[Rfam]
RNA sequence: GGCUUUCUUCGCGGCGGAGCUCGACCGCCCACACAGCAGGUAGUUGCGUUCAUCGACGAGCACAAGAGUGCUCAUGGGGUCGAGCCGAUCUGCGCGGCGUUGCAGGUCGCCCCG
Numbered sequence: 001g002g003c004u005u006u007c008u009u010c011g012c013g014g015c016g017g018a019g020c021u022c023g024a025c026c027g028c029c030c031a032c033a034c035a036g037c038a039g040g041u042a043g044u045u046g047c048g049u050u051c052a053u054c055g056a057c058g059a060g061c062a063c064a065a066g067a068g069u070g071c072u073c074a075u076g077g078g079g080u081c082g083a084g085c086c087g088a089u090c091u092g093c094g095c096g097g098c099g100u101u102g103c104a105g106g107u108c109g110c111c112c113c114g
Base pairs, nucleotide, nucleotide: 013029014028015027016026017025075114076113077112078111079110086109087108089106090105091104092103093102094101
RNA: ALIL pseudoknot